A member of the RNA family "c-di-GMP-I-GGC riboswitch aptamer" from Clostridium thailandense, 82 nucleotides long.
The family has 40 seed sequences and 1,298 matches in Rfam 15.1.

[Rfam]
RNA sequence: ACCGACAAUAGCAAACUUAUCGAAAGGUAAGGACGCAAAGCUAUAGGGCCUUUCAUUACGAAUGGCAGCCUAGCCGCCGAAU
Numbered sequence: 001a002c003c004g005a006c007a008a009u010a011g012c013a014a015a016c017u018u019a020u021c022g023a024a025a026g027g028u029a030a031g032g033a034c035g036c037a038a039a040g041c042u043a044u045a046g047g048g049c050c051u052u053u054c055a056u057u058a059c060g061a062a063u064g065g066c067a068g069c070c071u072a073g074c075c076g077c078c079g080a081a082u
Base pairs, nucleotide, nucleotide: 001082003079004078011036012035016031017030018029019028020027021026034068040074041073042072045071046070047069048066049065050064

NCBI's taxonomy places the organism under Bacteria, Bacillati, Clostridia, Clostridiaceae, Clostridium.